[Rfam]
RNA: Mammalian CPEB3 ribozyme
Organism: Laticauda laticaudata
RNA sequence: UGUGAGUCAUAGGGGGCCAUAGAAGGAGCAUUCACAUUGCGGCCCCUGUCAGGUAUCUGUUUACCUGCGAAUCCUUCU
Numbered sequence: 001u002g003u004g005a006g007u008c009a010u011a012g013g014g015g016g017c018c019a020u021a022g023a024a025g026g027a028g029c030a031u032u033c034a035c036a037u038u039g040c041g042g043c044c045c046c047u048g049u050c051a052g053g054u055a056u057c058u059g060u061u062u063a064c065c066u067g068c069g070a071a072u073c074c075u076u077c078u
Base pairs, nucleotide, nucleotide: 013046014045015044016043017042018041021078022077023076024075025074026073027072028040029039030038050067051066052065053064054063055062